This 80-nucleotide sequence from Eleutherodactylus coqui belongs to the Rfam family "mir-199 microRNA precursor family". Its family is annotated with miRNA-mediated post-transcriptional gene silencing and RISC complex in the Gene Ontology. On this family, see Ambros, Cell 2001: "microRNAs: tiny regulators with great potential". This family consists of the microRNA (miRNA) precursor mir-199 which appears to be specific to humans. Animal miRNAs are transcribed as ~70nt precursors and subsequently processed by the Dicer enzyme to give a ~22nt product. In this case the mature sequence comes from the 3' arm of the precursor. The extents of the hairpin precursors are not generally known and are estimated based on hairpin prediction. The products are thought to have regulatory roles through complementarity to mRNA. The involvement of Dicer in miRNA processing suggests a relationship with the phenomenon of RNA interference. miRNAs are numbered based on the sequence of the mature RNA.
[Rfam]
Nucleotides: 080
Base pairs, nucleotide, nucleotide: 012068013067014066015065016064017063018062021059022058023057024056025055026054029052030051031050033048034047
Number, partner (000 for none) and nucleotide at each position: 001000g002000c003000c004000c005000c006000g007000u008000u009000c010000u011000c012068c013067c014066a015065g016064u017063g018062u019000u020000c021059a022058g023057a024056c025055u026054a027000c028000g029052u030051g031050u032000u033048c034047g035000u036000u037000g038000g039000a040000c041000a042000g043000a044000a045000a046000g047034u048033g049000a050031a051030c052029a053000g054026u055025a056024g057023u058022c059021u060000a061000c062018a063017c064016a065015c066014u067013g068012g069000u070000u071000a072000a073000a074000c075000u076000g077000g078000g079000c080000u